This 133-nucleotide RNA sequence from Octodon degus belongs to the Rfam family "Small nucleolar RNA SNORA1". From the family's description: ACA1 is a member of the H/ACA class of snoRNA that guide the sites of modification of uridines to pseudouridines. Its family is annotated with nucleolus and RNA processing in the Gene Ontology. The family's RNA type in Rfam is H/ACA-box small nucleolar RNA. The base pairs follow the family's consensus structure, which was predicted with PFOLD. Rfam 15.1 lists 1,282 matches to the family in 515 species.

RNA sequence: AGCUUCAUUCUGGAUUAGAAUGGGCACUGUUGAUUAGUGUCCAGAAUUGCUCAAUGUGGCUAAAAUUGAGAUACCGGUCAUGCUUCAUUCACAGUAAACAUUUCCAGUGGUGACAACGAGGCCUGUAACAUCU
Dot-bracket structure: .(((.(((............(((((((.........)))))))..........))).)))............((.((...........((((..............))))...........)).)).......
Numbered sequence: 001a002g003c004u005u006c007a008u009u010c011u012g013g014a015u016u017a018g019a020a021u022g023g024g025c026a027c028u029g030u031u032g033a034u035u036a037g038u039g040u041c042c043a044g045a046a047u048u049g050c051u052c053a054a055u056g057u058g059g060c061u062a063a064a065a066u067u068g069a070g071a072u073a074c075c076g077g078u079c080a081u082g083c084u085u086c087a088u089u090c091a092c093a094g095u096a097a098a099c100a101u102u103u104c105c106a107g108u109g110g111u112g113a114c115a116a117c118g119a120g121g122c123c124u125g126u127a128a129c130a131u132c133u
Stems, first nucleotide, its partner, number of pairs: 002060003006056003021043007073126002076123002089110004